[Rfam]
RNA sequence: CAAGGAUACUAGCGAUAGUAUCUGCGACGGUAGCAAGAAGUCAGCAGAGGACCUAGUAGUGGAGGCAAAGCUAUCCGAAACGAAGGUU
Numbered sequence: 001c002a003a004g005g006a007u008a009c010u011a012g013c014g015a016u017a018g019u020a021u022c023u024g025c026g027a028c029g030g031u032a033g034c035a036a037g038a039a040g041u042c043a044g045c046a047g048a049g050g051a052c053c054u055a056g057u058a059g060u061g062g063a064g065g066c067a068a069a070g071c072u073a074u075c076c077g078a079a080a081c082g083a084a085g086g087u088u
Stems, first nucleotide, its partner, number of pairs: 001026001004023008041048002050088003059081002064076001
A member of the RNA family "Group II catalytic intron D1-D4-1" from Williamwhitmania taraxaci, 88 nucleotides long.
The organism belongs to Williamwhitmania, within Bacteria.